Source information: Glycine riboswitch aptamer: a 77-nucleotide RNA from Texcoconibacillus texcoconensis. The base pairs follow the family's consensus structure. Gene Ontology term of the family: glycine biosynthetic process.
[Rfam]
RNA sequence: GGAGCAACUUCUGGAGAGUCCGUCAAGAGCGGCGCCGAAGGGUUCACAAUCUCAGGCACAUGGACAGAAGUAUGGUA
Numbered sequence: 001g002g003a004g005c006a007a008c009u010u011c012u013g014g015a016g017a018g019u020c021c022g023u024c025a026a027g028a029g030c031g032g033c034g035c036c037g038a039a040g041g042g043u044u045c046a047c048a049a050u051c052u053c054a055g056g057c058a059c060a061u062g063g064a065c066a067g068a069a070g071u072a073u074g075g076u077a
Stems, first nucleotide, its partner, number of pairs: 007071007020032004034057003037053002041051003